[Rfam]
Alphacoronavirus 3'UTR: a 285-nucleotide RNA from Mink coronavirus strain WD1133. The base pairs follow the family's consensus structure. Clan: Coronavirus 3' UTR. NCBI's taxonomy places the organism under Viruses, Cornidovirineae, Coronaviridae, Alphacoronavirus, Minacovirus.

Nucleotides: 285
Stems, first nucleotide, its partner, number of pairs: 072089005093126009103117002130269006140254003148245001156235004163228001165226003171221001173218002192201002202211002
Number, partner (000 for none) and nucleotide at each position: 001000g002000a003000g004000c005000u006000a007000a008000u009000g010000u011000u012000c013000u014000u015000c016000u017000g018000u019000c020000u021000c022000u023000u024000a025000a026000a027000g028000a029000u030000g031000a032000a033000u034000u035000a036000u037000a038000a039000c040000a041000a042000g043000a044000u045000c046000u047000u048000c049000a050000g051000g052000c053000g054000u055000g056000u057000a058000c059000u060000g061000c062000g063000a064000g065000a066000u067000c068000u069000a070000c071000u072089c073088u074087u075086a076085c077000a078000c079000a080000g081000a082000a083000u084000g085076g086075u087074a088073a089072g090000c091000a092000c093126g094125u095124a096123u097122c098121u099120a100119u101118g102000u103117a104116g105000g106000g107000u108000g109000u110000a111000a112000g113000u114000a115000a116104c117103u118101c119100a120099u121098a122097g123096a124095u125094a126093u127000a128000u129000u130269a131268g132267g133266a134265a135264g136000u137000u138000u139000a140254g141253a142252u143000u144000g145000a146000a147000u148245u149000a150000a151000u152000c153000a154000a155000u156235a157234c158233u159232a160000g161000a162000u163228u164000g165226a166225a167224a168000a169000u170000u171221u172000g173218a174217g175000a176000g177000u178000a179000a180000u181000u182000u183000a184000a185000a186000g187000a188000u189000c190000c191000g192201c193200u194000u195000a196000g197000a198000c199000g200193a201192g202211c203210c204000a205000a206000c207000a208000a209000u210203g211202g212000a213000a214000g215000g216000g217174c218173u219000c220000a221171a222000c223000u224167u225166u226165u227000g228163g229000a230000u231000c232159u233158a234157g235156u236000u237000a238000a239000u240000u241000g242000u243000u244000a245148a246000u247000u248000a249000c250000c251000a252142a253141u254140u255000g256000a257000u258000g259000a260000u261000a262000a263000u264135u265134u266133u267132c268131c269130u270000u271000u272000u273000g274000a275000u276000a277000g278000u279000g280000a281000u282000a283000c284000a285000c